[Rfam]
RNA: TPP riboswitch aptamer (THI element)
Organism: Rippkaea orientalis
RNA sequence: CCUUAUAGCUAGGGGUGUCUGAAUUAAACCAGGCUGAGAAAGACCCUUAGAACCUGAGACUGGGUAAUACCAGCGUAGGGAAGCUGUUUCUUGAGGUA
Dot-bracket structure: .....(((((((((.((((((........)))))......)..)))).....((((...((((......))))..))))..)))))............